RNA: Bacillaceae-1 RNA
RNA sequence: AGAAAAGGAACGUCAACUAAAAGCCGCCACGUCCUGUGGCGAACAUUGACGUCAGCACAUCCUGUGCA
Numbered sequence: 001a002g003a004a005a006a007g008g009a010a011c012g013u014c015a016a017c018u019a020a021a022a023g024c025c026g027c028c029a030c031g032u033c034c035u036g037u038g039g040c041g042a043a044c045a046u047u048g049a050c051g052u053c054a055g056c057a058c059a060u061c062c063u064g065u066g067c068a
Base pairs, nucleotide, nucleotide: 011051012050013049014048015047016046026040027039028038029037030036055067056066057065058064